Rfam assigns this 90-nucleotide RNA from Sanguibacter sp. Leaf3 to the family "ZMP/ZTP riboswitch aptamer (pfl RNA motif)". The family's consensus secondary structure is taken from published work. Rfam links the family to the GO terms one-carbon metabolic process and regulation of purine nucleotide biosynthetic process.
RNA sequence: GAUCUCGGUCGCGACUGGCGAGGGUGGGGUUCACCACCGGGGAGCGACCGGAACGCCCCCGCAGCUGCGCCGCCCGCCUGGGCGCCUGGG
Numbered sequence: 001g002a003u004c005u006c007g008g009u010c011g012c013g014a015c016u017g018g019c020g021a022g023g024g025u026g027g028g029g030u031u032c033a034c035c036a037c038c039g040g041g042g043a044g045c046g047a048c049c050g051g052a053a054c055g056c057c058c059c060c061g062c063a064g065c066u067g068c069g070c071c072g073c074c075c076g077c078c079u080g081g082g083c084g085c086c087u088g089g090g
Stems, first nucleotide, its partner, number of pairs: 003053001005051008015041002017078004024037004067085005